[Rfam]
RNA sequence: AGCUGGGGGGAUUCCUGGCAGAGUGAUUUGGGACUAUAUCAGAAAAUCACAUUGCCAGGGAUUUCCAACCAGCU
Numbered sequence: 001a002g003c004u005g006g007g008g009g010g011a012u013u014c015c016u017g018g019c020a021g022a023g024u025g026a027u028u029u030g031g032g033a034c035u036a037u038a039u040c041a042g043a044a045a046a047u048c049a050c051a052u053u054g055c056c057a058g059g060g061a062u063u064u065c066c067a068a069c070c071a072g073c074u
Stems, first nucleotide, its partner, number of pairs: 001074002004071003009066002011062011023050007